[Rfam]
The family of this 58-nucleotide RNA from Streptomyces sulfonofaciens is "msiK RNA". The source organism's lineage runs through Bacteria, Actinomycetota, Actinomycetes, Kitasatosporales and Streptomyces. A search with the family's covariance model found it, with a score of 52 bits.
RNA sequence: CGGUCACUUCCUUUACUCGGAUCGUCCGGCACGUUCCUGCCGGUGAAGGGAUUCACGA
Numbered sequence: 001c002g003g004u005c006a007c008u009u010c011c012u013u014u015a016c017u018c019g020g021a022u023c024g025u026c027c028g029g030c031a032c033g034u035u036c037c038u039g040c041c042g043g044u045g046a047a048g049g050g051a052u053u054c055a056c057g058a
Stems, first nucleotide, its partner, number of pairs: 009050007026043006